[Rfam]
RNA: transfer-messenger RNA
Organism: Sporomusa malonica
RNA sequence: GGGGGCGUACUGGUUUCGACAGGGGUAGUUAUGGUAUGGGUAGCGAGCCGGGGUUCCAUCAGCCCGUCAACACGGUGGACCUAAAGUAAAAGCAAACAACGAAUACGCUUUAGCAGCUUAAUGCUAACGUUCUACCUACGCACUCCCGCGGCCUAGGAUAGGACGUCACUUAGUGGGAUACCUGAGGCUCAAUUCUCGGAGAGCCGACUGGAAAACUUUAUCGAGAUAGUGCUUGAGCAGCCUGUCUGUGGGCGGCAAAAGCGCAAAAUUUAAAUCACCGACUGCGCUCGGAGAAGCCUAUGCAGUAAUGCUUUUGGACAGGAGUUCGAUUCUCCUCGCCUCCACCA
Numbered sequence: 001g002g003g004g005g006c007g008u009a010c011u012g013g014u015u016u017c018g019a020c021a022g023g024g025g026u027a028g029u030u031a032u033g034g035u036a037u038g039g040g041u042a043g044c045g046a047g048c049c050g051g052g053g054u055u056c057c058a059u060c061a062g063c064c065c066g067u068c069a070a071c072a073c074g075g076u077g078g079a080c081c082u083a084a085a086g087u088a089a090a091a092g093c094a095a096a097c098a099a100c101g102a103a104u105a106c107g108c109u110u111u112a113g114c115a116g117c118u119u120a121a122u123g124c125u126a127a128c129g130u131u132c133u134a135c136c137u138a139c140g141c142a143c144u145c146c147c148g149c150g151g152c153c154u155a156g157g158a159u160a161g162g163a164c165g166u167c168a169c170u171u172a173g174u175g176g177g178a179u180a181c182c183u184g185a186g187g188c189u190c191a192a193u194u195c196u197c198g199g200a201g202a203g204c205c206g207a208c209u210g211g212a213a214a215a216c217u218u219u220a221u222c223g224a225g226a227u228a229g230u231g232c233u234u235g236a237g238c239a240g241c242c243u244g245u246c247u248g249u250g251g252g253c254g255g256c257a258a259a260a261g262c263g264c265a266a267a268a269u270u271u272a273a274a275u276c277a278c279c280g281a282c283u284g285c286g287c288u289c290g291g292a293g294a295a296g297c298c299u300a301u302g303c304a305g306u307a308a309u310g311c312u313u314u315u316g317g318a319c320a321g322g323a324g325u326u327c328g329a330u331u332c333u334c335c336u337c338g339c340c341u342c343c344a345c346c347a
Stems, first nucleotide, its partner, number of pairs: 001343007020316008029307001032305001034303008044290005049066004055079006111127001113125001116124002128165006135157004140152002143150001144178006181210001186205004194226005229264006237256002240253003244282003250275001320336005
Dot-bracket structure: (((((((............((((((((.(..(.((((((((..((((([[[[..((((((..]]]].......))))))...............................(.(..((.....))).)((((((.((((.((.([[[[[[))).))))..)))))).......]]]]]]..[....[[[[....(((((...]]]]....]...........)))))..((((((..((.(((.[[[...[))).))..))))))..........]....]]]...))))).....)))))))).).).))))))))...(((((.......))))))))))))....